[Rfam]
RNA sequence: ACCUUCUCAUGAGCUCCUCUGAAUCUUACUCAUGAUUCUGAAUGGAUUCGCACGAGAAGCAGAGUCAAUGCACAGUUAGAACAAGCUCUGCAGGCCCUACUCGCAUUAGGGAGAUUGUCUGUCUGUUGUGCAACAGUU
Numbered sequence: 001a002c003c004u005u006c007u008c009a010u011g012a013g014c015u016c017c018u019c020u021g022a023a024u025c026u027u028a029c030u031c032a033u034g035a036u037u038c039u040g041a042a043u044g045g046a047u048u049c050g051c052a053c054g055a056g057a058a059g060c061a062g063a064g065u066c067a068a069u070g071c072a073c074a075g076u077u078a079g080a081a082c083a084a085g086c087u088c089u090g091c092a093g094g095c096c097c098u099a100c101u102c103g104c105a106u107u108a109g110g111g112a113g114a115u116u117g118u119c120u121g122u123c124u125g126u127u128g129u130g131c132a133a134c135a136g137u138u
Stems, first nucleotide, its partner, number of pairs: 003059006013051002015046003021038005070131005095111005
Small nucleolar RNA SNORA75: a 138-nucleotide sequence from Dissostichus mawsoni. Rfam's curators write: U23 belongs to the H/ACA class of snoRNAs. snoRNAs bind a number of proteins (including dyskerin, Gar1p and Nop10p in the case of the H/ACA class) to form snoRNP complexes. Taxonomically the source falls in Dissostichus (Eukaryota, Opisthokonta, Craniata, Notothenioidei). The literature on the family includes a 1997 paper in Genes Dev by Ganot et al., "The family of box ACA small nucleolar RNAs is defined by an evolutionarily conserved secondary structure and ubiquitous sequence elements essential for RNA accumulation". Pairs were carried over by alignment from the consensus structure, which was predicted with PFOLD.